[Rfam]
MIR2655 microRNA precursor family: a 251-nucleotide RNA from Trifolium subterraneum. Rfam links the family to the GO terms RISC complex and miRNA-mediated post-transcriptional gene silencing. It scores 146 bits against the family's covariance model.
RNA sequence: CCCUUAUCUUUUAAAAGUUUCAAGUUGGUCCCUUAUCUUUAUUUUAGGUUUCAAGUUGGUCCCUUCCGUCAAUUUUUUAACUAUUUCCGUUAAAUUUGGACACGUGGCAAACUAAUUUGGACACGUGGCACACUUGGACUAUGACACGUGUCCAAAUUUAACGGUAACAGUACAAAAUUUGACGGAAGGGACCAACUUGAAACCUAAAAAAAAGAUAAGGGACCAACUUGAAACUUUUAAAAGAUAAGGGA
Numbered sequence: 001c002c003c004u005u006a007u008c009u010u011u012u013a014a015a016a017g018u019u020u021c022a023a024g025u026u027g028g029u030c031c032c033u034u035a036u037c038u039u040u041a042u043u044u045u046a047g048g049u050u051u052c053a054a055g056u057u058g059g060u061c062c063c064u065u066c067c068g069u070c071a072a073u074u075u076u077u078u079a080a081c082u083a084u085u086u087c088c089g090u091u092a093a094a095u096u097u098g099g100a101c102a103c104g105u106g107g108c109a110a111a112c113u114a115a116u117u118u119g120g121a122c123a124c125g126u127g128g129c130a131c132a133c134u135u136g137g138a139c140u141a142u143g144a145c146a147c148g149u150g151u152c153c154a155a156a157u158u159u160a161a162c163g164g165u166a167a168c169a170g171u172a173c174a175a176a177a178u179u180u181g182a183c184g185g186a187a188g189g190g191a192c193c194a195a196c197u198u199g200a201a202a203c204c205u206a207a208a209a210a211a212a213a214g215a216u217a218a219g220g221g222a223c224c225a226a227c228u229u230g231a232a233a234c235u236u237u238u239a240a241a242a243g244a245u246a247a248g249g250g251a
Stems, first nucleotide, its partner, number of pairs: 002249007023228003027224003031220010042209002045206003